[Rfam]
RNA: SAM riboswitch aptamer (S box leader)
RNA sequence: UUCUUAUCCAGAGCAGGCUGAGGGACUGGCCCGAUGACGCCCGGCAACCGACUGUCAAGAGCAUGCGGCUCUUGCGGCACGGUGCUAACUCCUGCAGGAAUGUUUCCUGAGAGAUGAGAG
Numbered sequence: 001u002u003c004u005u006a007u008c009c010a011g012a013g014c015a016g017g018c019u020g021a022g023g024g025a026c027u028g029g030c031c032c033g034a035u036g037a038c039g040c041c042c043g044g045c046a047a048c049c050g051a052c053u054g055u056c057a058a059g060a061g062c063a064u065g066c067g068g069c070u071c072u073u074g075c076g077g078c079a080c081g082g083u084g085c086u087a088a089c090u091c092c093u094g095c096a097g098g099a100a101u102g103u104u105u106c107c108u109g110a111g112a113g114a115u116g117a118g119a120g
Stems, first nucleotide, its partner, number of pairs: 001120008013042001016041003022032003026094001028092002043086004048082002050078001052076001090112001095109006